[Rfam]
This 146-nucleotide sequence from Bowmanella pacifica belongs to the Rfam family "Group II catalytic intron D1-D4-7". For this family Rfam cites "The ins and outs of group II introns" (Bonen and Vogel, Trends Genet, 2001). Gene Ontology term of the family: Group II intron splicing. The base pairs follow the family's consensus structure.

RNA sequence: CCUGUUAUACGGCUAACAGUAGCCUAGGGAUAGUGCGAUGCUGGCAACGGCAUGGUGCGAAGCUUCCUGACAAUGUACCUCUGCGUAAGCGGUGCCUUUAAUCCGUGAGGAUGGGUGUAGCUAGCGAACAAUACGCUGGCUGGGGG
Number, nucleotide and partner (000 for none) at each position: 001c000002c019003u018004g017005u016006u015007a014008u000009a000010c000011g000012g000013c000014u007015a006016a005017c004018a003019g002020u000021a000022g000023c000024c000025u000026a000027g068028g067029g066030a065031u000032a000033g058034u057035g056036c055037g000038a053039u052040g051041c050042u049043g048044g000045c000046a000047a000048c043049g042050g041051c040052a039053u038054g000055g036056u035057g034058c033059g000060a000061a000062g000063c000064u000065u030066c029067c028068u027069g000070a000071c000072a000073a000074u000075g000076u000077a000078c000079c000080u000081c092082u091083g090084c089085g000086u000087a000088a000089g084090c083091g082092g081093u117094g116095c115096c114097u000098u000099u000100a000101a000102u000103c110104c109105g000106u000107g000108a000109g104110g103111a000112u000113g000114g096115g095116u094117g093118u000119a000120g000121c139122u138123a137124g136125c135126g134127a000128a000129c000130a000131a000132u000133a000134c126135g125136c124137u123138g122139g121140c000141u000142g000143g000144g000145g000146g000
Annotation:
The family has 244 seed sequences and 1,296 matches in Rfam 15.1. A search with the family's covariance model found it, with a score of 105 bits.